RNA sequence: UGAAACAGCGAAUACUUGCUACGACGCAACACACGGAGAAAUGCAAUGAGAACUCGUUUCUGAGAGCUUACUUCUUAUCAAUGCUUUGUUGACUUUGGGGAAAGUCCCCGGACGUAUGACAGAAAGUGUCAGUCGUAAAGAAAUAUUUUUUUCUCGAAUCUUCGGCUCCAUGAGCCCGGCGGAGAAGCUACAAUCGCAGAGCUGUUGGACGAGGGAAGGACUUAAUUGGUCGAAGCAAAGUUAUGCAACGUGACAUCAGUCGCUGAUGUUAUCUGAACGGGGCUUACUCUCAUAGUGUC
Numbered sequence: 001u002g003a004a005a006c007a008g009c010g011a012a013u014a015c016u017u018g019c020u021a022c023g024a025c026g027c028a029a030c031a032c033a034c035g036g037a038g039a040a041a042u043g044c045a046a047u048g049a050g051a052a053c054u055c056g057u058u059u060c061u062g063a064g065a066g067c068u069u070a071c072u073u074c075u076u077a078u079c080a081a082u083g084c085u086u087u088g089u090u091g092a093c094u095u096u097g098g099g100g101a102a103a104g105u106c107c108c109c110g111g112a113c114g115u116a117u118g119a120c121a122g123a124a125a126g127u128g129u130c131a132g133u134c135g136u137a138a139a140g141a142a143a144u145a146u147u148u149u150u151u152u153c154u155c156g157a158a159u160c161u162u163c164g165g166c167u168c169c170a171u172g173a174g175c176c177c178g179g180c181g182g183a184g185a186a187g188c189u190a191c192a193a194u195c196g197c198a199g200a201g202c203u204g205u206u207g208g209a210c211g212a213g214g215g216a217a218g219g220a221c222u223u224a225a226u227u228g229g230u231c232g233a234a235g236c237a238a239a240g241u242u243a244u245g246c247a248a249c250g251u252g253a254c255a256u257c258a259g260u261c262g263c264u265g266a267u268g269u270u271a272u273c274u275g276a277a278c279g280g281g282g283c284u285u286a287c288u289c290u291c292a293u294a295g296u297g298u299c
Stems, first nucleotide, its partner, number of pairs: 002299002005296002008293001010291002014251002016248004022097003026093001036076005042070001102285003106282004118130004152220003159215005169208001177204004187197002190194001253269006
RNA: RNase MRP
Organism: Stylophora pistillata